[Rfam]
RNA sequence: GGCGGCGUUAAUUCGCGGGUAAGGUUUCCGGUGUUUAACUGCGAUCAGUCCAGAUUGAUUGGAUAGGCGGAGCGCUGGUCGCCCCGUUUGACGCCUCCCUGUUGAAACUCCUGAGAGCCGCUCGCGCGGCUCUUUUUUU
Dot-bracket structure: .((((........)......(.(.(....).).).....)))....((((......)))).....(((((........)))))......((((......)))).........(((((((((....))))))))).....

About this RNA
This 139-nucleotide RNA sequence from Aurantimonas aggregata belongs to the Rfam family "Alphaproteobacterial sRNA BjrC1505". On this family, see Madhugiri et al., RNA Biol 2012: "Small RNAs of the Bradyrhizobium/Rhodopseudomonas lineage and their analysis". Taxonomically the source falls in Aurantimonas (Bacteria, Pseudomonadati, Alphaproteobacteria, Aurantimonadaceae). The pairing is the family consensus, mapped onto this sequence.